[Rfam]
RNA sequence: GGAUGGAUGAUGACUCCUUCGUAUGCAUUCCUUGGUAAAUCUGAACAAAAUAAGUGAGAAUGCUCUACCAUCUCCUCAUCGAAACUGAGGUCC
Numbered sequence: 001g002g003a004u005g006g007a008u009g010a011u012g013a014c015u016c017c018u019u020c021g022u023a024u025g026c027a028u029u030c031c032u033u034g035g036u037a038a039a040u041c042u043g044a045a046c047a048a049a050a051u052a053a054g055u056g057a058g059a060a061u062g063c064u065c066u067a068c069c070a071u072c073u074c075c076u077c078a079u080c081g082a083a084a085c086u087g088a089g090g091u092c093c
Stems, first nucleotide, its partner, number of pairs: 001093004026056004032048003
This 93-nucleotide RNA from Delphinapterus leucas belongs to the Rfam family "Small nucleolar RNA SNORD116". The family has 48 seed sequences and 3,260 matches in Rfam 15.1. The organism belongs to Delphinapterus, within Eukaryota. A search with the family's covariance model found it, with a score of 78 bits. It is annotated as a C/D-box small nucleolar RNA. On this family, see Cavaille et al., Proc Natl Acad Sci U S A 2000: "Identification of brain-specific and imprinted small nucleolar RNA genes exhibiting an unusual genomic organization". Rfam links the family to the GO terms RNA processing and nucleolus.